[Rfam]
RNA sequence: UCUGGAGCUGAUUGUCCAAACGCAAUUCUUGUCUGCCAGUAUCAAUCCAGGAGUUGUGGAUGGACAUCACACCCCCGA
Numbered sequence: 001u002c003u004g005g006a007g008c009u010g011a012u013u014g015u016c017c018a019a020a021c022g023c024a025a026u027u028c029u030u031g032u033c034u035g036c037c038a039g040u041a042u043c044a045a046u047c048c049a050g051g052a053g054u055u056g057u058g059g060a061u062g063g064a065c066a067u068c069a070c071a072c073c074c075c076c077g078a
Stems, first nucleotide, its partner, number of pairs: 002077001004075002007072001009069004014065005021058011
Dot-bracket structure: .(.((.(.((((.(((((..(((((((((((................)))))))))))..)))))))))..).)).).
Rfam assigns this 78-nucleotide RNA sequence from Synaphobranchus kaupii to the family "mir-219 microRNA precursor family". The source organism's lineage runs through Eukaryota, Gnathostomata, Teleostomi, Anguilliformes and Synaphobranchus. It scores 68 bits against the family's covariance model. The family's consensus secondary structure was predicted with RNAalifold. Its family is annotated with miRNA-mediated post-transcriptional gene silencing and RISC complex in the Gene Ontology.